[Rfam]
RNA sequence: AUUUGACAAAGGCAAACCCGUUGCGAAAGCCGGGGUCGCAAAGCCGUGGGUCUAAGCUGAUACUGUCAGUAUGAUUGCCAGGAUGCCGGG
Dot-bracket structure: ...........((...((((..((....))))))...))..(.((.((((((....((((.....))))...)))..))))).)......